[Rfam]
RNA: Group II catalytic intron D1-D4-5
RNA sequence: GAGAACUGUUAAUCCGAGAAAUCGAAUGAUAGGGUAACGCCUUGAAAGGUUUCCUCUGAUACUCCGACAUGCAUCAAGAUACUAACCUAUCUUGAGGUAUGAAGCUCGGUGAAGUCGGCUGAGAGCCACCCUACACAUAUCCCUAAAGGAAUGUGAUGGAAAUGUGAACUAGAGGUAGUCAAGUGGUGACAGGUCGGGAGUCAAUAUU
Numbered sequence: 001g002a003g004a005a006c007u008g009u010u011a012a013u014c015c016g017a018g019a020a021a022u023c024g025a026a027u028g029a030u031a032g033g034g035u036a037a038c039g040c041c042u043u044g045a046a047a048g049g050u051u052u053c054c055u056c057u058g059a060u061a062c063u064c065c066g067a068c069a070u071g072c073a074u075c076a077a078g079a080u081a082c083u084a085a086c087c088u089a090u091c092u093u094g095a096g097g098u099a100u101g102a103a104g105c106u107c108g109g110u111g112a113a114g115u116c117g118g119c120u121g122a123g124a125g126c127c128a129c130c131c132u133a134c135a136c137a138u139a140u141c142c143c144u145a146a147a148g149g150a151a152u153g154u155g156a157u158g159g160a161a162a163u164g165u166g167a168a169c170u171a172g173a174g175g176u177a178g179u180c181a182a183g184u185g186g187u188g189a190c191a192g193g194u195c196g197g198g199a200g201u202c203a204a205u206a207u208u
Stems, first nucleotide, its partner, number of pairs: 018053006031043004054200004064109004068101005074095008116196005124187001126186004130159002136155005163182001165181002168179004